[Rfam]
RNA sequence: GAGCAUGGAUGCUAGGGUUCCGGUCGCAUUGAGGUUGCGAUGCCUGGUCCGAGAGCAGCCGGUUCCACGUCUUCAUCGAUCUGGAGCUACACGGAGGGAUAAAAGCCCGGGAGGC
Dot-bracket structure: ......((.(((..((...(((((((((.......))))))..).)).))....))).))(((((((..............))))))).(.[...(((.......))).)..]..
This 115-nucleotide RNA from Noviherbaspirillum denitrificans belongs to the Rfam family "Guanidine-I riboswitch aptamer". This family represents a conserved RNA structure found upstream of the ykkC and yxkD genes in Bacillus subtilis and related genes in other bacteria. The base pairs follow the family's consensus structure. It scores 85 bits against the family's covariance model.